The record is a 274-nucleotide RNA sequence from Clonostachys rhizophaga, which matches "Fungal signal recognition particle RNA" in Rfam.
RNA sequence: GACUGUAAUGGUCUAAUGGUGAAGAGUUUCAAUUUCUCGAUUGCCUCUCUCCCAAAUCCGUCAGAUCCCCCCCGUGACGCCCAGACCGAACGCUGCGGUGGUCGCCCACUCGCUCAGGUAACUAGCGAUUGUGGAAUGCGCACCCUAAGCAUUGGAGAGUACCCUUGAGGGAGGUUUCACUCUGCAGAGAUCUCUCCCCCGUCGCGUGGCGGGCUGGAUUACGAUCGCGGGGGGUUUGGGAUGAUGGUUCGAGAUGGAAACAUCAACACUUCUU
Numbered sequence: 001g002a003c004u005g006u007a008a009u010g011g012u013c014u015a016a017u018g019g020u021g022a023a024g025a026g027u028u029u030c031a032a033u034u035u036c037u038c039g040a041u042u043g044c045c046u047c048u049c050u051c052c053c054a055a056a057u058c059c060g061u062c063a064g065a066u067c068c069c070c071c072c073c074g075u076g077a078c079g080c081c082c083a084g085a086c087c088g089a090a091c092g093c094u095g096c097g098g099u100g101g102u103c104g105c106c107c108a109c110u111c112g113c114u115c116a117g118g119u120a121a122c123u124a125g126c127g128a129u130u131g132u133g134g135a136a137u138g139c140g141c142a143c144c145c146u147a148a149g150c151a152u153u154g155g156a157g158a159g160u161a162c163c164c165u166u167g168a169g170g171g172a173g174g175u176u177u178c179a180c181u182c183u184g185c186a187g188a189g190a191u192c193u194c195u196c197c198c199c200c201g202u203c204g205c206g207u208g209g210c211g212g213g214c215u216g217g218a219u220u221a222c223g224a225u226c227g228c229g230g231g232g233g234g235u236u237u238g239g240g241a242u243g244a245u246g247g248u249u250c251g252a253g254a255u256g257g258a259a260a261c262a263u264c265a266a267c268a269c270u271u272c273u274u
Stems, first nucleotide, its partner, number of pairs: 001013003018270004024264001026261005032255001035254002038251003044247002048243001050241008069233008078223002081217004086212003090207004095202004100143001103140003106134001107131002110128005116123002145149001154197006164189003171182003
Its Rfam clan is "SRP clan". A search with the family's covariance model found it, with a score of 147 bits.